[Rfam]
RNA sequence: GAACACCGAGCGGGAGAGACCCCGCGCCGCGGCCGCGGCGCGGGGCGCCGAAGGAGCAACCCUCCCCGGAACCUCUCAGGCGAACGGACCGCCCGGAUCAG
Numbered sequence: 001g002a003a004c005a006c007c008g009a010g011c012g013g014g015a016g017a018g019a020c021c022c023c024g025c026g027c028c029g030c031g032g033c034c035g036c037g038g039c040g041c042g043g044g045g046c047g048c049c050g051a052a053g054g055a056g057c058a059a060c061c062c063u064c065c066c067c068g069g070a071a072c073c074u075c076u077c078a079g080g081c082g083a084a085c086g087g088a089c090c091g092c093c094c095g096g097a098u099c100a101g
Base pairs, nucleotide, nucleotide: 006096007095008094010092011091012090013089020045021044022043023042024041025040026039027038047081048080049079050077051076054075055074056073060069061068
The record is a 101-nucleotide RNA sequence from Allonocardiopsis opalescens, which matches "Glycine riboswitch aptamer" in Rfam. Lineage of the source: Bacteria > Actinomycetota > Actinomycetes > Streptosporangiales > Allonocardiopsis. On this family, see Mandal et al., Science 2004: "A glycine-dependent riboswitch that uses cooperative binding to control gene expression". The match comes from Rfam's covariance-model search (53 bits).